[Rfam]
A member of the RNA family "terC RNA" from Martinezella rhizogenes, 61 nucleotides long. By type it is a cis-regulatory element. The source organism's lineage runs through Bacteria, Pseudomonadati, Alphaproteobacteria, Hyphomicrobiales and Martinezella rhizogenes.
Nucleotides: 061
Base pairs, nucleotide, nucleotide: 006055007054008053009052010051011050012049022044023043024042025041026040027039028038029037
Number, partner (000 for none) and nucleotide at each position: 001000c002000c003000g004000c005000u006055g007054g008053u009052c010051c011050g012049g013000g014000c015000c016000c017000c018000u019000c020000u021000g022044g023043u024042g025041a026040g027039a028038g029037c030000c031000g032000u033000c034000g035000g036000c037029g038028c039027u040026c041025u042024u043023g044022c045000g046000a047000u048000g049012u050011c051010g052009g053008a054007c055006c056000u057000u058000u059000u060000c061000c